[Rfam]
RNA sequence: UAGCUGUUGUGGUCUAGGGGAGACAGUCUGCAUCCUCCGCCUGCCCGUGUAUUUAGUCUACAUGACUAAUACAGCGGGAGGUGCCUGGUUCGAAUCGCCGGGUCGCGGAUUUAAUUAAUUUUAAAUCACUUCCACACUCGUGCGAGUAAUCCACGACUGCUGCUGGCGCGCUAAGCCCUGGCCAUGACGCUCGAGGGAAGCAAUUCUGCAGAGACAUGGCCCCCCGGCGAUGGCGGCACCAGAUCACACCUCCGCUGCACUGGCACAAGGGGGAACUGGACUGUCGACUCUUUUU
Numbered sequence: 001u002a003g004c005u006g007u008u009g010u011g012g013u014c015u016a017g018g019g020g021a022g023a024c025a026g027u028c029u030g031c032a033u034c035c036u037c038c039g040c041c042u043g044c045c046c047g048u049g050u051a052u053u054u055a056g057u058c059u060a061c062a063u064g065a066c067u068a069a070u071a072c073a074g075c076g077g078g079a080g081g082u083g084c085c086u087g088g089u090u091c092g093a094a095u096c097g098c099c100g101g102g103u104c105g106c107g108g109a110u111u112u113a114a115u116u117a118a119u120u121u122u123a124a125a126u127c128a129c130u131u132c133c134a135c136a137c138u139c140g141u142g143c144g145a146g147u148a149a150u151c152c153a154c155g156a157c158u159g160c161u162g163c164u165g166g167c168g169c170g171c172u173a174a175g176c177c178c179u180g181g182c183c184a185u186g187a188c189g190c191u192c193g194a195g196g197g198a199a200g201c202a203a204u205u206c207u208g209c210a211g212a213g214a215c216a217u218g219g220c221c222c223c224c225c226g227g228c229g230a231u232g233g234c235g236g237c238a239c240c241a242g243a244u245c246a247c248a249c250c251u252c253c254g255c256u257g258c259a260c261u262g263g264c265a266c267a268a269g270g271g272g273g274a275a276c277u278g279g280a281c282u283g284u285c286g287a288c289u290c291u292u293u294u295u
Base pairs, nucleotide, nucleotide: 003013004012016292017291018290019289020288024283025282026281027280029278030277033274034273035272038269043264044263045262047260048259049258053069054068055067056066057065058064073256074255075254076253077252079251080250081249082248083247085242086241087240088239089238090236091235092234094231095230096229097228098227099226100225101224102223127170129168131166132165133162134161135159136158138156139155140154141153142152144151145150171175180221181220182219183218184217185216190213191212192211197206198205199204
Rfam assigns this 295-nucleotide RNA from Helicocarpus griseus to the family "Fungal signal recognition particle RNA".
Rfam 15.1 lists 748 matches to the family in 741 species.
Pairs were carried over by alignment from the consensus structure, which is taken from published work.